The family of this 75-nucleotide RNA from Parafrankia flexibilis is "ASpks TB sRNA".
It is annotated as an antisense RNA.
The base pairs follow the family's consensus structure, which is taken from published work.
The source organism's lineage runs through Bacteria, Actinomycetota, Actinomycetes, Frankiaceae and Parafrankia.
[Rfam]
RNA sequence: CUUGACCGCGCCCAGAUAGAGCGGCCGGUCCGGGGGGCGCGCCGCACCGUAGGCGGCGAGCAGGGCGUCCGCCUC
Numbered sequence: 001c002u003u004g005a006c007c008g009c010g011c012c013c014a015g016a017u018a019g020a021g022c023g024g025c026c027g028g029u030c031c032g033g034g035g036g037g038c039g040c041g042c043c044g045c046a047c048c049g050u051a052g053g054c055g056g057c058g059a060g061c062a063g064g065g066c067g068u069c070c071g072c073c074u075c
Stems, first nucleotide, its partner, number of pairs: 015025001017023001031071003038065001043060001045058001047056003